[Rfam]
This 71-nucleotide RNA sequence from Lepeophtheirus salmonis belongs to the Rfam family "MIR397 microRNA precursor family". It scores 55 bits against the family's covariance model. The family has 7 seed sequences and 496 matches in Rfam 15.1.

RNA sequence: ACGGAAUUUAUCUUUAAGUGCAAGGUUAAUAGAAAUACACUCUAUUAGCCUUGCACUUAAAAAUAAAUUUC
Numbered sequence: 001a002c003g004g005a006a007u008u009u010a011u012c013u014u015u016a017a018g019u020g021c022a023a024g025g026u027u028a029a030u031a032g033a034a035a036u037a038c039a040c041u042c043u044a045u046u047a048g049c050c051u052u053g054c055a056c057u058u059a060a061a062a063a064u065a066a067a068u069u070u071c
Stems, first nucleotide, its partner, number of pairs: 006068006013061016030044003

The family's consensus secondary structure was predicted with WAR.
Taxonomically the source falls in Lepeophtheirus (Eukaryota, Panarthropoda, Allotriocarida, Caligidae).
On this family, see Mica et al., BMC Genomics 2009: "High throughput approaches reveal splicing of primary microRNA transcripts and tissue specific expression of mature microRNAs in Vitis vinifera".